[Rfam]
RNA sequence: GCACUGUUCAUUCAGAAUUAUAUCCCUAUAUAGGAAGCGUCCGUUUCGACGGACUAUGGUGAUAAAUUGUGACGUGUAAUAGACACUACGGACCCGGGGGCAGUACCCGGCGGCUCCACCAUUUCAGGCGAUUUGCUGUGUGCAGGACGCUUUUGCUGAUGGGGCCGAACCAGGAUCGACGGGUGUUCAAAGGCGUUAUUUUUACCCGGCCUGAGUAUGCCGUGAUUGCUCAAAACCUAUAAGUGCAAACGAUAACGAAGCACUCGCUAUUGCUGCCUAACCCAUUGACCUCACGGUCAUAAGUUAGAAAGCUACGCGCGGUUGAACCCACCGGGCAACAGAAGGGAAUUCA
Numbered sequence: 001g002c003a004c005u006g007u008u009c010a011u012u013c014a015g016a017a018u019u020a021u022a023u024c025c026c027u028a029u030a031u032a033g034g035a036a037g038c039g040u041c042c043g044u045u046u047c048g049a050c051g052g053a054c055u056a057u058g059g060u061g062a063u064a065a066a067u068u069g070u071g072a073c074g075u076g077u078a079a080u081a082g083a084c085a086c087u088a089c090g091g092a093c094c095c096g097g098g099g100g101c102a103g104u105a106c107c108c109g110g111c112g113g114c115u116c117c118a119c120c121a122u123u124u125c126a127g128g129c130g131a132u133u134u135g136c137u138g139u140g141u142g143c144a145g146g147a148c149g150c151u152u153u154u155g156c157u158g159a160u161g162g163g164g165c166c167g168a169a170c171c172a173g174g175a176u177c178g179a180c181g182g183g184u185g186u187u188c189a190a191a192g193g194c195g196u197u198a199u200u201u202u203u204a205c206c207c208g209g210c211c212u213g214a215g216u217a218u219g220c221c222g223u224g225a226u227u228g229c230u231c232a233a234a235a236c237c238u239a240u241a242a243g244u245g246c247a248a249a250c251g252a253u254a255a256c257g258a259a260g261c262a263c264u265c266g267c268u269a270u271u272g273c274u275g276c277c278u279a280a281c282c283c284a285u286u287g288a289c290c291u292c293a294c295g296g297u298c299a300u301a302a303g304u305u306a307g308a309a310a311g312c313u314a315c316g317c318g319c320g321g322u323u324g325a326a327c328c329c330a331c332c333g334g335g336c337a338a339c340a341g342a343a344g345g346g347a348a349u350u351c352a
Stems, first nucleotide, its partner, number of pairs: 039054005058206005069199007084185003089181002094110005111167007207222004212233001218228001319333004324351003329346001

The record is a 352-nucleotide sequence from Sphingorhabdus sp. SMR4y, which matches "Alphaproteobacteria transfer-messenger RNA" in Rfam. The family's RNA type in Rfam is non-coding RNA gene. A search with the family's covariance model found it, with a score of 227 bits.